[Rfam]
A member of the RNA family "U2 spliceosomal RNA" from Phyllostomus discolor, 192 nucleotides long. U2 is a small nuclear RNA (snRNA) component of the spliceosome (involved in pre-mRNA splicing). Complementary binding between U2 snRNA (in an area lying towards the 5' end but 3' to hairpin I) and the branchpoint sequence (BPS) of the intron results the bulging out of an unpaired adenosine, on the BPS, which initiates a nucleophilic attack at the intronic 5' splice site, thus starting the first of two transesterification reactions that mediate splicing. The match comes from Rfam's covariance-model search (89 bits). Lineage of the source: Eukaryota > Opisthokonta > Eumetazoa > Eutheria > Phyllostomus. Rfam 15.1 lists 71,512 matches to the family in 2,642 species.
RNA sequence: AUCUCUUCUUGGCCUUUUGGUGAAGACCGAGGAUAGUAUGUAUUUGUAUUAGUGUAUUAUCUGAUACACCCUGUACUCAAGGACAUUAUACUAAAUGGAUUUUUGGAUCCGGGAGACAGAAUUAGGGGCUUGCUCAGUCCACUCUGCGCACCGAGCGGGUAUUGCAGUACCUCCAGGAACAGUGCAAGAGAA
Numbered sequence: 001a002u003c004u005c006u007u008c009u010u011g012g013c014c015u016u017u018u019g020g021u022g023a024a025g026a027c028c029g030a031g032g033a034u035a036g037u038a039u040g041u042a043u044u045u046g047u048a049u050u051a052g053u054g055u056a057u058u059a060u061c062u063g064a065u066a067c068a069c070c071c072u073g074u075a076c077u078c079a080a081g082g083a084c085a086u087u088a089u090a091c092u093a094a095a096u097g098g099a100u101u102u103u104u105g106g107a108u109c110c111g112g113g114a115g116a117c118a119g120a121a122u123u124a125g126g127g128g129c130u131u132g133c134u135c136a137g138u139c140c141a142c143u144c145u146g147c148g149c150a151c152c153g154a155g156c157g158g159g160u161a162u163u164g165c166a167g168u169a170c171c172u173c174c175a176g177g178a179a180c181a182g183u184g185c186a187a188g189a190g191a192a
Stems, first nucleotide, its partner, number of pairs: 007026003012021003047066006069082002072079002112145004119138001126135003148185004153180001156176001158174002